[Rfam]
RNA sequence: GGAAGGCAUUCGCAUCUGGUGAUGCGGCUGGGCUUCAAACCCAGUUGAGGACGUCAGACGUUCUCAGGUCGGUUCGACUCCGGCUGCCUUCC
Numbered sequence: 001g002g003a004a005g006g007c008a009u010u011c012g013c014a015u016c017u018g019g020u021g022a023u024g025c026g027g028c029u030g031g032g033c034u035u036c037a038a039a040c041c042c043a044g045u046u047g048a049g050g051a052c053g054u055c056a057g058a059c060g061u062u063c064u065c066a067g068g069u070c071g072g073u074u075c076g077a078c079u080c081c082g083g084c085u086g087c088c089u090u091c092c
Stems, first nucleotide, its partner, number of pairs: 001092008011026006027045006047065005069083004